[Rfam]
RNA sequence: ACAAGAAAAACAACAAGCAGUACGACACCCAUAAUAAAAACAACACGAAUCGACUCACGCAUAACAAGAACAACACGGCGGAGGCGCAGCUAACUGAUUCUUUUGGAGAGGAGUUGUAUUUGGGGCUUGCCCCGCAACCAGGCCGAGAACAACAAAAACUACCCUUAGGUAGAGCCUGAACUGGUUGGAUCGAAUGAUCAUUGCAACGCAGCGACCAAAGCAAUCCGUUUGCUCUUGACUCCCGAUUGGGAGGUUUCACAGACGAAGGUCUCGUGAAUGGGCACUCAACAAAAACAAGAAGCCCAUACAGAAAACAAUAAUAAAGAGCACACACUUUGGGGGAGCUUCGGCUCCCCCAGUAGCUUCCCCAGCGUUAAUACGCGCCAUCGUUU
Numbered sequence: 001a002c003a004a005g006a007a008a009a010a011c012a013a014c015a016a017g018c019a020g021u022a023c024g025a026c027a028c029c030c031a032u033a034a035u036a037a038a039a040a041c042a043a044c045a046c047g048a049a050u051c052g053a054c055u056c057a058c059g060c061a062u063a064a065c066a067a068g069a070a071c072a073a074c075a076c077g078g079c080g081g082a083g084g085c086g087c088a089g090c091u092a093a094c095u096g097a098u099u100c101u102u103u104u105g106g107a108g109a110g111g112a113g114u115u116g117u118a119u120u121u122g123g124g125g126c127u128u129g130c131c132c133c134g135c136a137a138c139c140a141g142g143c144c145g146a147g148a149a150c151a152a153c154a155a156a157a158a159c160u161a162c163c164c165u166u167a168g169g170u171a172g173a174g175c176c177u178g179a180a181c182u183g184g185u186u187g188g189a190u191c192g193a194a195u196g197a198u199c200a201u202u203g204c205a206a207c208g209c210a211g212c213g214a215c216c217a218a219a220g221c222a223a224u225c226c227g228u229u230u231g232c233u234c235u236u237g238a239c240u241c242c243c244g245a246u247u248g249g250g251a252g253g254u255u256u257c258a259c260a261g262a263c264g265a266a267g268g269u270c271u272c273g274u275g276a277a278u279g280g281g282c283a284c285u286c287a288a289c290a291a292a293a294a295c296a297a298g299a300a301g302c303c304c305a306u307a308c309a310g311a312a313a314a315c316a317a318u319a320a321u322a323a324a325g326a327g328c329a330c331a332c333a334c335u336u337u338g339g340g341g342g343a344g345c346u347u348c349g350g351c352u353c354c355c356c357c358a359g360u361a362g363c364u365u366c367c368c369c370a371g372c373g374u375u376a377a378u379a380c381g382c383g384c385c386a387u388c389g390u391u392u
Stems, first nucleotide, its partner, number of pairs: 051086002054083003101220005115213003135187007159172005238254003242250001273374003278370001279304004323365003338357008

The record is a 392-nucleotide RNA from Pseudomonas savastanoi, which matches "Pseudomonas sRNA CrcZ" in Rfam. Gene Ontology term of the family: carbon catabolite repression of transcription. The organism belongs to Pseudomonas savastanoi pv. phaseolicola, within Bacteria. The family's consensus secondary structure was predicted with WAR.